[Rfam]
RNA sequence: CUGAAAUCAGUAAUCAUUUCUGUAGUUACUAGAGAAGUUUCUCUGAUCGUGUAGAGCACCGAAAACCACAAGGAAGGAGGCACAGCGUUCUCUUCUGAGCAUGAAACCAGCUCUUGGUAUUGCUUUGCUGCAACUGCAAUUUGCCCUUGAUGAUCGUUCUUCUCUUCCAUGUGGGAGAGUGAGAGGGAGAGAAUGCAGUCUGAGUGGC
Numbered sequence: 001c002u003g004a005a006a007u008c009a010g011u012a013a014u015c016a017u018u019u020c021u022g023u024a025g026u027u028a029c030u031a032g033a034g035a036a037g038u039u040u041c042u043c044u045g046a047u048c049g050u051g052u053a054g055a056g057c058a059c060c061g062a063a064a065a066c067c068a069c070a071a072g073g074a075a076g077g078a079g080g081c082a083c084a085g086c087g088u089u090c091u092c093u094u095c096u097g098a099g100c101a102u103g104a105a106a107c108c109a110g111c112u113c114u115u116g117g118u119a120u121u122g123c124u125u126u127g128c129u130g131c132a133a134c135u136g137c138a139a140u141u142u143g144c145c146c147u148u149g150a151u152g153a154u155c156g157u158u159c160u161u162c163u164c165u166u167c168c169a170u171g172u173g174g175g176a177g178a179g180u181g182a183g184a185g186g187g188a189g190a191g192a193a194u195g196c197a198g199u200c201u202g203a204g205u206g207g208c
Base pairs, nucleotide, nucleotide: 001025002024008022009021010020012018039055040054044051066207067206068205069204085196086195087194088193089192090191091190092189093188094187095186096185099157100156110144111143115139117137118136120133121132122131123130160182161181162179163178164177165176166175167174168173
A member of the RNA family "Small nucleolar RNA U3" from Orycteropus afer, 208 nucleotides long. It is annotated as a C/D-box small nucleolar RNA. Lineage of the source: Eukaryota > Opisthokonta > Metazoa > Eutheria > Orycteropus afer. From the family's description: Small nucleolar RNAs (snoRNAs) are involved in the processing and modification of rRNA in the nucleolus. There are two main classes of snoRNAs: the box C/D class, and the box H/ACA class. U3 snoRNA is a member of the box C/D class. Indeed, the box C/D element is a subset of the six short sequence elements found in all U3 snoRNAs, namely boxes A, A', B, C, C', and D. The U3 snoRNA secondary structure is characterised by a small 5' domain (with boxes A and A'), and a larger 3' domain (with boxes B, C, C', and D), the two domains being linked by a single-stranded hinge. Boxes B and C form the B/C motif, which appears to be exclusive to U3 snoRNAs, and boxes C' and D form the C'/D motif. The latter is functionally similar to the C/D motifs found in other snoRNAs. The 5' domain and the hinge region act as a pre-rRNA-binding domain. The 3' domain has conserved protein-binding sites. Both the box B/C and box C'/D motifs are sufficient for nuclear retention of U3 snoRNA. The box C'/D motif is also necessary for nucleolar localisation, stability and hyper-methylation of U3 snoRNA. Both box B/C and C'/D motifs are involved in specific protein interactions and are necessary for the rRNA processing functions of U3 snoRNA. The family has 87 seed sequences and 19,072 matches in Rfam 15.1.